[Rfam]
RNA sequence: AACACUACCCGAACAAAAGUACAAACUUGACUACUGAAAGCAGUAAGUGCUAUUUGUUGGGGUACUGUUG
Numbered sequence: 001a002a003c004a005c006u007a008c009c010c011g012a013a014c015a016a017a018a019g020u021a022c023a024a025a026c027u028u029g030a031c032u033a034c035u036g037a038a039a040g041c042a043g044u045a046a047g048u049g050c051u052a053u054u055u056g057u058u059g060g061g062g063u064a065c066u067g068u069u070g
Stems, first nucleotide, its partner, number of pairs: 004066001006064005013057005018051005025044003
RNA: miR-430 microRNA precursor family
Organism: Scophthalmus maximus